[Rfam]
Nucleotides: 066
Stems, first nucleotide, its partner, number of pairs: 002065002005062002008059008017051009027040003
Number, partner (000 for none) and nucleotide at each position: 001000g002065g003064c004000u005062g006061g007000g008059a009058u010057a011056u012055c013054a014053u015052c016000a017051u018050a019049u020048a021047c022046u023045g024044u025043a026000a027040g028039u029038u030000u031000g032000u033000g034000a035000u036000g037000a038029g039028a040027c041000a042000c043025u044024a045023c046022a047021g048020u049019a050018u051017a052015g053014a054013u055012g056011a057010u058009g059008u060000a061006c062005u063000a064003g065002u066000c